[Rfam]
RNA sequence: CUCUCGGCUUAGGACGACUGUCGGAUUAGUCACUUGUGAUUAUCAGCAUUCAAAGUGACUAGACCGAACACUCGUAUCCUAAAUCGUUGA
Numbered sequence: 001c002u003c004u005c006g007g008c009u010u011a012g013g014a015c016g017a018c019u020g021u022c023g024g025a026u027u028a029g030u031c032a033c034u035u036g037u038g039a040u041u042a043u044c045a046g047c048a049u050u051c052a053a054a055g056u057g058a059c060u061a062g063a064c065c066g067a068a069c070a071c072u073c074g075u076a077u078c079c080u081a082a083a084u085c086g087u088u089g090a
Base pairs, nucleotide, nucleotide: 011080012079013078014077016075019070020069021068022066023065024064027061028060029059030058031057033055034054
Dot-bracket structure: ..........((((.(..((((((..(((((.((...................)).)))))..))).)))....).))))..........

Background
Rfam assigns this 90-nucleotide RNA from Anopheles darlingi to the family "mir-286 microRNA precursor family". On this family, see Li et al., BMC Genomics 2009: "Direct sequencing and expression analysis of a large number of miRNAs in Aedes aegypti and a multispecies survey of novel mosquito miRNAs". Pairs were carried over by alignment from the consensus structure, which was predicted with RNAalifold. Lineage of the source: Eukaryota > Allotriocarida > Pterygota > Panorpida > argyritarsis series.